About this RNA:
A member of the RNA family "glmS glucosamine-6-phosphate activated ribozyme aptamer" from Clostridium cadaveris, 191 nucleotides long. Rfam describes the family as follows. This entry contains a glucosamine-6-phosphate activated ribozyme that is found in the mRNA for GlmS. GlmS is an enzyme that uses fructose-6-phosphate and glutamine to generate glucosamine-6-phosphate. The family's RNA type in Rfam is riboswitch. Taxonomically the source falls in Clostridium (Bacteria, Bacillota, Clostridia, Eubacteriales). Pairs were carried over by alignment from the consensus structure, which is taken from published work. On this family, see Jansen et al., Nat Struct Mol Biol 2006: "Backbone and nucleobase contacts to glucosamine-6-phosphate in the glmS ribozyme".
RNA sequence: AAGAAUUAUUAAGCGCCAGAACUUAAUGAAAGUGCACACCUUGUGCAUGUCCAUAUCUCUAUUGGGACUUUAAGUUGACGAGGAUGGGGAGUAUCGAAGACUUCGGCGGAUGCCCCACGGUAAGACACUACCGUUAACCAUUGGUAAAGCCAAGGAGCAAUUCUUGGAACAAAUUCAAUGUGGUGAUUAAA
Numbered sequence: 001a002a003g004a005a006u007u008a009u010u011a012a013g014c015g016c017c018a019g020a021a022c023u024u025a026a027u028g029a030a031a032g033u034g035c036a037c038a039c040c041u042u043g044u045g046c047a048u049g050u051c052c053a054u055a056u057c058u059c060u061a062u063u064g065g066g067a068c069u070u071u072a073a074g075u076u077g078a079c080g081a082g083g084a085u086g087g088g089g090a091g092u093a094u095c096g097a098a099g100a101c102u103u104c105g106g107c108g109g110a111u112g113c114c115c116c117a118c119g120g121u122a123a124g125a126c127a128c129u130a131c132c133g134u135u136a137a138c139c140a141u142u143g144g145u146a147a148a149g150c151c152a153a154g155g156a157g158c159a160a161u162u163c164u165u166g167g168a169a170c171a172a173a174u175u176c177a178a179u180g181u182g183g184u185g186a187u188u189a190a191a
Stems, first nucleotide, its partner, number of pairs: 020076007085117005094106004118133005139180005150167007